RNA: Bacterial RNase P class A
RNA sequence: GUGGUAACAGUAGGUAGUCGCCCGGCGCCUUAGUGCCGGGAGGAAAGUCCGGACUACACAGAGCGGGGAGUCCUUUUGAUAAAGAAGGAUACUGCGGACGAUAUUCCGCGGGAAGGAAAGUGCAGCAGAAAAUAUACCGCCUCGUCUAAUGACGGGGUAAGGGUGAAAAGGUGGAGUAAGAGCCCACCGGGCGCGCAGCGAGAGCGGCGCCGCAUUGUAAACCCCUCCUGUAGCAAGACCAAAUAGGGAGCGAGUCGCUGCUCGCGGCGUUUGAGCUCCGGGUUCUGGUCGCUUAGAUAGAUGAUUACCAUUUCGCUUCGGCGAAAAACAGAAUCCGGCUUAUUCUGUUACCACUUUU
Numbered sequence: 001g002u003g004g005u006a007a008c009a010g011u012a013g014g015u016a017g018u019c020g021c022c023c024g025g026c027g028c029c030u031u032a033g034u035g036c037c038g039g040g041a042g043g044a045a046a047g048u049c050c051g052g053a054c055u056a057c058a059c060a061g062a063g064c065g066g067g068g069a070g071u072c073c074u075u076u077u078g079a080u081a082a083a084g085a086a087g088g089a090u091a092c093u094g095c096g097g098a099c100g101a102u103a104u105u106c107c108g109c110g111g112g113a114a115g116g117a118a119a120g121u122g123c124a125g126c127a128g129a130a131a132a133u134a135u136a137c138c139g140c141c142u143c144g145u146c147u148a149a150u151g152a153c154g155g156g157g158u159a160a161g162g163g164u165g166a167a168a169a170g171g172u173g174g175a176g177u178a179a180g181a182g183c184c185c186a187c188c189g190g191g192c193g194c195g196c197a198g199c200g201a202g203a204g205c206g207g208c209g210c211c212g213c214a215u216u217g218u219a220a221a222c223c224c225c226u227c228c229u230g231u232a233g234c235a236a237g238a239c240c241a242a243a244u245a246g247g248g249a250g251c252g253a254g255u256c257g258c259u260g261c262u263c264g265c266g267g268c269g270u271u272u273g274a275g276c277u278c279c280g281g282g283u284u285c286u287g288g289u290c291g292c293u294u295a296g297a298u299a300g301a302u303g304a305u306u307a308c309c310a311u312u313u314c315g316c317u318u319c320g321g322c323g324a325a326a327a328a329c330a331g332a333a334u335c336c337g338g339c340u341u342a343u344u345c346u347g348u349u350a351c352c353a354c355u356u357u358u
Stems, first nucleotide, its partner, number of pairs: 001354010012343001013309007021040008045341003049338005054233004061263004066229005071089007090114001092111007115224002120222002122218003137162002139158008170188005191213001193210004198205002237290004247279005254268005